[Rfam]
The record is a 71-nucleotide sequence from Aquila chrysaetos, which matches "mir-124 microRNA precursor family" in Rfam. A search with the family's covariance model found it, with a score of 57 bits.

RNA sequence: AGCGUUUCAUGUUCACCACGGACCUUGAUUUAACGUCACACAAUUAAGGCACAUGGUGAAUGCCAAAGGGG
Numbered sequence: 001a002g003c004g005u006u007u008c009a010u011g012u013u014c015a016c017c018a019c020g021g022a023c024c025u026u027g028a029u030u031u032a033a034c035g036u037c038a039c040a041c042a043a044u045u046a047a048g049g050c051a052c053a054u055g056g057u058g059a060a061u062g063c064c065a066a067a068g069g070g071g
Base pairs, nucleotide, nucleotide: 003069005067006066010062011061012060013059014058015057016056018054020052023049024048025047026046027045028044029043030042